[Rfam]
RNA sequence: UACACCCCUGGGCGUUGAAAUACGCCUUAACCGCCAUUAUUGGAAGGGUAAGUGGUAAAUUAACUUGAUACAGGGCGCACGGUAAAGCGGUCGCACCUGCCGUGCGUAGAGGAUAGAA
Numbered sequence: 001u002a003c004a005c006c007c008c009u010g011g012g013c014g015u016u017g018a019a020a021u022a023c024g025c026c027u028u029a030a031c032c033g034c035c036a037u038u039a040u041u042g043g044a045a046g047g048g049u050a051a052g053u054g055g056u057a058a059a060u061u062a063a064c065u066u067g068a069u070a071c072a073g074g075g076c077g078c079a080c081g082g083u084a085a086a087g088c089g090g091u092c093g094c095a096c097c098u099g100c101c102g103u104g105c106g107u108a109g110a111g112g113a114u115a116g117a118a
Base pairs, nucleotide, nucleotide: 003054004053005052010027011026012025013024014023015022031048032047034043035042036041064111065110066109075107076106077105078104079103080102081101082100083099084098087094088093

Shown here is a 118-nucleotide RNA sequence, a member of the family "RT-4 RNA". It scores 115 bits against the family's covariance model. The family's consensus secondary structure is taken from published work.